[Rfam]
algC RNA: a 52-nucleotide sequence. It is one of the family's seed sequences. Rfam classes the family as a cis-regulatory element. The base pairs follow the family's consensus structure, which is taken from published work.
RNA sequence: AUUUAAUUGGCCCUGUCCGGGUCGGGCCAACUGUUGCCUGAAUAAGGGGUAA
Numbered sequence: 001a002u003u004u005a006a007u008u009g010g011c012c013c014u015g016u017c018c019g020g021g022u023c024g025g026g027c028c029a030a031c032u033g034u035u036g037c038c039u040g041a042a043u044a045a046g047g048g049g050u051a052a
Stems, first nucleotide, its partner, number of pairs: 009023005